This 50-nucleotide RNA belongs to the Rfam family "L31-Gammaproteobacteria ribosomal protein leader". The base pairs follow the family's consensus structure, which is taken from published work. It is one of the family's seed sequences.
[Rfam]
RNA sequence: CGUGUGGUGUUCGGCUUAGAAUCGAAUGGCGACACGGCCUAUAAUGAGGU
Numbered sequence: 001c002g003u004g005u006g007g008u009g010u011u012c013g014g015c016u017u018a019g020a021a022u023c024g025a026a027u028g029g030c031g032a033c034a035c036g037g038c039c040u041a042u043a044a045u046g047a048g049g050u
Base pairs, nucleotide, nucleotide: 001036002035003034004033005032007030008029011025012024013023014022015019